[Rfam]
RNA sequence: AUGAAAGACUAGGGGUGCCUAUGUGAGUGGGCUGAGAAAAAGGUGUUCCUUUUACCCUCGUACCUGAUCUGGAUCACGCCAGCGUAGGGAAGUCACCGCAGCCGUAU
Numbered sequence: 001a002u003g004a005a006a007g008a009c010u011a012g013g014g015g016u017g018c019c020u021a022u023g024u025g026a027g028u029g030g031g032c033u034g035a036g037a038a039a040a041a042g043g044u045g046u047u048c049c050u051u052u053u054a055c056c057c058u059c060g061u062a063c064c065u066g067a068u069c070u071g072g073a074u075c076a077c078g079c080c081a082g083c084g085u086a087g088g089g090a091a092g093u094c095a096c097c098g099c100a101g102c103c104g105u106a107u
Base pairs, nucleotide, nucleotide: 007094008093009092010091011058012057013056014055017032018031019030020029021028040051041050042049043048063088064087065086066085069082070081071080072079
The record is a 107-nucleotide RNA from Halalkalibacter akibai, which matches "TPP riboswitch aptamer (THI element)" in Rfam.
Pairs were carried over by alignment from the consensus structure, which is taken from published work.